[Rfam]
Rfam assigns this 371-nucleotide RNA from Aurantimonas coralicida to the family "Alphaproteobacteria transfer-messenger RNA". Rfam describes the family as follows. Bacterial tmRNA, also known as 10Sa RNA or SsrA, is named for its dual tRNA and mRNA-like properties.

RNA sequence: GGGCUUUUCAUGGCGGAAUCCCCUGCCUAUAUUGCGCGUGCCGGCUUCGUGCCGGCUAUGGCGAUAAACGGCCGAUGAAAUAAACCUUUCGGACCCGGGGGCGGUACCCGGCGCCUCCACCUGAACCCAUCCCCUCGCGGCGAUCCCGCGGCGAUGGGUUCAGGCGGGGGCGAAAUAGGAUCGACGAGGGUGUAAAGAUCGGACUUUUGCUCGGCAUGGUUCCGCCGUUAUCGGGCCUAUUUGUAGUUGCAAACGACAACUAUGCGGAAGCACGUCUCGCAGCGUAAGCUGCGCGAUCGCUUCAAUUUAAGCCCUGGAGGUUCGCACUUCUAGGCGGGGUCCGGAGGCACCUGGCAACAGAAGCCUCCACU
Numbered sequence: 001g002g003g004c005u006u007u008u009c010a011u012g013g014c015g016g017a018a019u020c021c022c023c024u025g026c027c028u029a030u031a032u033u034g035c036g037c038g039u040g041c042c043g044g045c046u047u048c049g050u051g052c053c054g055g056c057u058a059u060g061g062c063g064a065u066a067a068a069c070g071g072c073c074g075a076u077g078a079a080a081u082a083a084a085c086c087u088u089u090c091g092g093a094c095c096c097g098g099g100g101g102c103g104g105u106a107c108c109c110g111g112c113g114c115c116u117c118c119a120c121c122u123g124a125a126c127c128c129a130u131c132c133c134c135u136c137g138c139g140g141c142g143a144u145c146c147c148g149c150g151g152c153g154a155u156g157g158g159u160u161c162a163g164g165c166g167g168g169g170g171c172g173a174a175a176u177a178g179g180a181u182c183g184a185c186g187a188g189g190g191u192g193u194a195a196a197g198a199u200c201g202g203a204c205u206u207u208u209g210c211u212c213g214g215c216a217u218g219g220u221u222c223c224g225c226c227g228u229u230a231u232c233g234g235g236c237c238u239a240u241u242u243g244u245a246g247u248u249g250c251a252a253a254c255g256a257c258a259a260c261u262a263u264g265c266g267g268a269a270g271c272a273c274g275u276c277u278c279g280c281a282g283c284g285u286a287a288g289c290u291g292c293g294c295g296a297u298c299g300c301u302u303c304a305a306u307u308u309a310a311g312c313c314c315u316g317g318a319g320g321u322u323c324g325c326a327c328u329u330c331u332a333g334g335c336g337g338g339g340u341c342c343g344g345a346g347g348c349a350c351c352u353g354g355c356a357a358c359a360g361a362a363g364c365c366u367c368c369a370c371u
Stems, first nucleotide, its partner, number of pairs: 040056005060211005070205002073201004085190003089187003095111005112172007212227004218237002222234002337352004343368006
The source organism's lineage runs through Bacteria, Pseudomonadati, Alphaproteobacteria, Hyphomicrobiales and Aurantimonas coralicida. Rfam classes the family as a non-coding RNA gene.